[Rfam]
Record summary: Rfam assigns this 98-nucleotide RNA from Vibrio renipiscarius to the family "Qrr RNA". From the family's description: This family represents a set of small RNAs (the Qrr RNAs) that are thought to be involved in the regulation of quorum sensing in Vibrio species. It is believed that these RNAs, guided by a protein, Hfq, can mediate the destabilisation of the quorum-sensing master regulators LuxR/HapR mRNAs.
RNA sequence: UGACCCUCAUGGGUCACCUAGCCAACUGACGUUGUUAGUGAACUCAGUGUUCACAAAUAGCAGCCAAUAGAACCUUUCUUUCUAUUGGCUAUUUUUUU
Numbered sequence: 001u002g003a004c005c006c007u008c009a010u011g012g013g014u015c016a017c018c019u020a021g022c023c024a025a026c027u028g029a030c031g032u033u034g035u036u037a038g039u040g041a042a043c044u045c046a047g048u049g050u051u052c053a054c055a056a057a058u059a060g061c062a063g064c065c066a067a068u069a070g071a072a073c074c075u076u077u078c079u080u081u082c083u084a085u086u087g088g089c090u091a092u093u094u095u096u097u098u
Base pairs, nucleotide, nucleotide: 001016002015003014004013005012006011032060033059034058035057038054039053040052041051042050043049064088065087066086067085068084069083070082071081
Description:
A search with the family's covariance model found it, with a score of 84 bits. Lineage of the source: Bacteria > Pseudomonadati > Pseudomonadota > Gammaproteobacteria > Vibrio. The family has 30 seed sequences and 148 matches in Rfam 15.1.